The family of this 109-nucleotide sequence from Planomicrobium sp. CPCC 101110 is "SAM riboswitch aptamer (S box leader)". Pairs were carried over by alignment from the consensus structure, which is taken from published work.

RNA sequence: AACUUAUCAAGAGAGACCGAGGGACAGGCCCUAAGACGUCCAGCAACCUCCAGAGCAAUCUGGAAAGGUGCUAAUUCCUGCAGGAUGAUUUCAUUCUGGGAGAUAAACC
Numbered sequence: 001a002a003c004u005u006a007u008c009a010a011g012a013g014a015g016a017c018c019g020a021g022g023g024a025c026a027g028g029c030c031c032u033a034a035g036a037c038g039u040c041c042a043g044c045a046a047c048c049u050c051c052a053g054a055g056c057a058a059u060c061u062g063g064a065a066a067g068g069u070g071c072u073a074a075u076u077c078c079u080g081c082a083g084g085a086u087g088a089u090u091u092c093a094u095u096c097u098g099g100g101a102g103a104u105a106a107a108c109c
Base pairs, nucleotide, nucleotide: 004106005105006104007103008102013041015040016039017038021031022030023029025080026079027078028077042072043071044070045069047068048067049064050063051062052061076101081098082097083096084095085094086093